[Rfam]
RNA sequence: AUUCAAUGAGUGAUGUAAAAAAAGUCUGAACAUAUGAAUUCAAUAUUGAAUUCAGCAUUUAACUUGUUAAAA
Number, nucleotide and partner (000 for none) at each position: 001a000002u071003u070004c000005a068006a067007u066008g065009a000010g000011u000012g000013a000014u000015g000016u000017a000018a000019a000020a000021a000022a000023a000024g000025u000026c000027u000028g000029a000030a000031c000032a000033u000034a000035u000036g000037a000038a000039u000040u000041c000042a000043a000044u000045a000046u000047u000048g000049a000050a000051u000052u000053c000054a000055g000056c000057a000058u000059u000060u000061a000062a000063c000064u000065u008066g007067u006068u005069a000070a003071a002072a000

Small nucleolar RNA SNORD72: a 72-nucleotide sequence from Phyllostomus discolor. Rfam's curators write: snoRNA HBII-240 belongs to the CD family of snoRNAs. It is the human orthologue of the mouse MBII-240 and is predicted to guide 2'O-ribose methylation of the large 28S rRNA at residue U4590. The family's RNA type in Rfam is C/D-box small nucleolar RNA. For this family Rfam cites "RNomics: an experimental approach that identifies 201 candidates for novel, small, non-messenger RNAs in mouse" (Huttenhofer et al., EMBO J, 2001). The pairing is the family consensus, mapped onto this sequence. The source organism's lineage runs through Eukaryota, Opisthokonta, Gnathostomata, Chiroptera and Phyllostomus.